[Rfam]
RNA sequence: CUUCACAUUACAUCCUCGCGACUAAUGACAACCUUUAUCUCAACCGGGGAUAAAGCCUCUCAUUAGCCGCGCGAACCUCUGUAACGGAAGAACCUUAAUAAUACAUUAACCUGAUUUACUUAUGCUUCCUAGAAGAAAGGGGCCAAAAUAGGCCCCUUUCC
Numbered sequence: 001c002u003u004c005a006c007a008u009u010a011c012a013u014c015c016u017c018g019c020g021a022c023u024a025a026u027g028a029c030a031a032c033c034u035u036u037a038u039c040u041c042a043a044c045c046g047g048g049g050a051u052a053a054a055g056c057c058u059c060u061c062a063u064u065a066g067c068c069g070c071g072c073g074a075a076c077c078u079c080u081g082u083a084a085c086g087g088a089a090g091a092a093c094c095u096u097a098a099u100a101a102u103a104c105a106u107u108a109a110c111c112u113g114a115u116u117u118a119c120u121u122a123u124g125c126u127u128c129c130u131a132g133a134a135g136a137a138a139g140g141g142g143c144c145a146a147a148a149u150a151g152g153c154c155c156c157u158u159u160c161c
Stems, first nucleotide, its partner, number of pairs: 001090004006086001010082003017073004022066007096114001139156006
Shown here is a 161-nucleotide sequence from Chania multitudinisentens, a member of the family "SraG RNA". A reference for the family is Argaman et al. (2001), "Novel small RNA-encoding genes in the intergenic regions of Escherichia coli", Curr Biol. Gene Ontology terms of the family: mRNA binding and sRNA-mediated gene silencing. About the family: This RNA was discovered in E. coli during a large scale screen. Evidence was found for specific cleavage of this RNA.